[Rfam]
RNA: pemK RNA
RNA sequence: AUAAUGAUACUCGCGCAUCGAACGCCCUCAAAGCAUUGUGCGCCCCGCCAUCAGCAGUGGGGGGAGGUGAAAGUCCUGUGG
Dot-bracket structure: ...........(((((((...................))))))(((.(((.......))).)))(((.......))))...